[Rfam]
Rfam assigns this 280-nucleotide RNA sequence from Callorhinchus milii to the family "Small Cajal body specific RNA 6".
Rfam describes the family as follows. U88 is small Cajal body specific RNA (scaRNA). scaRNAs are a novel class of small nuclear RNAs which localise to the Cajal bodies.
RNA sequence: GGUCGGUGAUGAUCAGUAAAAGGUCUGAUUGCUCCAGGACACGUCCCCAGCACCUUCGCUCCCAGAAGCCCUCGUGCCUUUCCCAUGCUGCUCUAGCUGUGCUGUGAUGGCAGCCGGGGGGCUUCUGACAAUAACUGAUGCAGCUGCUUCGGUCCAUGAUUCAGAGAGAGAUUUGGAGCAUGUUCACAGCGGCAUCUGACAAGAGCUGUCACUCAGGGGCACCGGGUGCUGGGAGCCGAGUUAUAUCUGGCGCAUGACUUAAAGUUUUCAAGCUGAGACC
Numbered sequence: 001g002g003u004c005g006g007u008g009a010u011g012a013u014c015a016g017u018a019a020a021a022g023g024u025c026u027g028a029u030u031g032c033u034c035c036a037g038g039a040c041a042c043g044u045c046c047c048c049a050g051c052a053c054c055u056u057c058g059c060u061c062c063c064a065g066a067a068g069c070c071c072u073c074g075u076g077c078c079u080u081u082c083c084c085a086u087g088c089u090g091c092u093c094u095a096g097c098u099g100u101g102c103u104g105u106g107a108u109g110g111c112a113g114c115c116g117g118g119g120g121g122c123u124u125c126u127g128a129c130a131a132u133a134a135c136u137g138a139u140g141c142a143g144c145u146g147c148u149u150c151g152g153u154c155c156a157u158g159a160u161u162c163a164g165a166g167a168g169a170g171a172u173u174u175g176g177a178g179c180a181u182g183u184u185c186a187c188a189g190c191g192g193c194a195u196c197u198g199a200c201a202a203g204a205g206c207u208g209u210c211a212c213u214c215a216g217g218g219g220c221a222c223c224g225g226g227u228g229c230u231g232g233g234a235g236c237c238g239a240g241u242u243a244u245a246u247c248u249g250g251c252g253c254a255u256g257a258c259u260u261a262a263a264g265u266u267u268u269c270a271a272g273c274u275g276a277g278a279c280c
Stems, first nucleotide, its partner, number of pairs: 001280004036260003040256001044235001046233006059219004063127007083110004089104002091101001137196005155182004160177006
It scores 110 bits against the family's covariance model. For this family Rfam cites "Cajal body-specific small nuclear RNAs: a novel class of 2'-O-methylation and pseudouridylation guide RNAs" (Darzacq et al., EMBO J, 2002). Pairs were carried over by alignment from the consensus structure, which is taken from published work.